Shown here is a 516-nucleotide part of an RNA from Trichogramma brassicae, a member of the family "Eukaryotic large subunit ribosomal RNA". Taxonomically the source falls in Trichogramma (Eukaryota, Opisthokonta, Insecta, Pterygota).

RNA sequence: GGUAGUAGCAAAUACUCCAGCGAGGCCCUGGAGGACUGACGUGGAGAAGGGUUUCGCGUGAACAGUAGUUGCUCGCGAGUCAGUCGAUCCUAAGCUCAAGGAGAAAUCCUAUGUCGAUGGGCGUAUGUAUUCAUUGCUUUUUAUUGUUGUAAUGUAAACAUAAACGCCACUCCGAGCGAAAGGGAAUCCGGUUCCUAUUCCGGAACCCGGCAGCGGAACCGUUUCAAUAAUCGUUCCCUCGUUUCAAUGCGAGUGUUCGACGGGGUAACCCAAAGUGGCCUGAAGACGCCGCCGAGAGGUCCGGGAAGAGUUUUCUUUUCUGCCUGAGCGUUCGAGUUCCAUGGAAUCCUAUAGAAGGGAGAUAUGGUUCGGAACGCGAAGAGCACCGCAUUUGCGGCGGUGUCCGGAUACUCUCUGAGGACCUUGAAAAUUCAGGUGAGGGGUGUACGUGGAGAUGUCGCGCCGGUUCGUACCCAUAUCCGCAGCAGGUCUCCAAGGUGAAGAGCCUCUAGUCGA
Numbered sequence: 001g002g003u004a005g006u007a008g009c010a011a012a013u014a015c016u017c018c019a020g021c022g023a024g025g026c027c028c029u030g031g032a033g034g035a036c037u038g039a040c041g042u043g044g045a046g047a048a049g050g051g052u053u054u055c056g057c058g059u060g061a062a063c064a065g066u067a068g069u070u071g072c073u074c075g076c077g078a079g080u081c082a083g084u085c086g087a088u089c090c091u092a093a094g095c096u097c098a099a100g101g102a103g104a105a106a107u108c109c110u111a112u113g114u115c116g117a118u119g120g121g122c123g124u125a126u127g128u129a130u131u132c133a134u135u136g137c138u139u140u141u142u143a144u145u146g147u148u149g150u151a152a153u154g155u156a157a158a159c160a161u162a163a164a165c166g167c168c169a170c171u172c173c174g175a176g177c178g179a180a181a182g183g184g185a186a187u188c189c190g191g192u193u194c195c196u197a198u199u200c201c202g203g204a205a206c207c208c209g210g211c212a213g214c215g216g217a218a219c220c221g222u223u224u225c226a227a228u229a230a231u232c233g234u235u236c237c238c239u240c241g242u243u244u245c246a247a248u249g250c251g252a253g254u255g256u257u258c259g260a261c262g263g264g265g266u267a268a269c270c271c272a273a274a275g276u277g278g279c280c281u282g283a284a285g286a287c288g289c290c291g292c293c294g295a296g297a298g299g300u301c302c303g304g305g306a307a308g309a310g311u312u313u314u315c316u317u318u319u320c321u322g323c324c325u326g327a328g329c330g331u332u333c334g335a336g337u338u339c340c341a342u343g344g345a346a347u348c349c350u351a352u353a354g355a356a357g358g359g360a361g362a363u364a365u366g367g368u369u370c371g372g373a374a375c376g377c378g379a380a381g382a383g384c385a386c387c388g389c390a391u392u393u394g395c396g397g398c399g400g401u402g403u404c405c406g407g408a409u410a411c412u413c414u415c416u417g418a419g420g421a422c423c424u425u426g427a428a429a430a431u432u433c434a435g436g437u438g439a440g441g442g443g444u445g446u447a448c449g450u451g452g453a454g455a456u457g458u459c460g461c462g463c464c465g466g467u468u469c470g471u472a473c474c475c476a477u478a479u480c481c482g483c484a485g486c487a488g489g490u491c492u493c494c495a496a497g498g499u500g501a502a503g504a505g506c507c508u509c510u511a512g513u514c515g516a
Base pairs, nucleotide, nucleotide: 015033016032017031018030019029020028034514035513036512037511043494044493045492046491049474050473054078055077056076057075058074063071064070085470086469087468089183090182094177095176098110100109101108102107119170121168187204188203189202190201191200207466208465209464210463248462249461250460251459252458253456254455262271263270264269279436280435281434282433283432284431289420290419294415295414296413297412298411301407302406303405304324305323307321308320309319328377329376330375331374332373339367340366341365342364343363347359348358349357350356384402385401386400387399388398389397480489481488496508497507498506499505

Its Rfam clan is "LSU clan". Pairs were carried over by alignment from the consensus structure, which is taken from published work.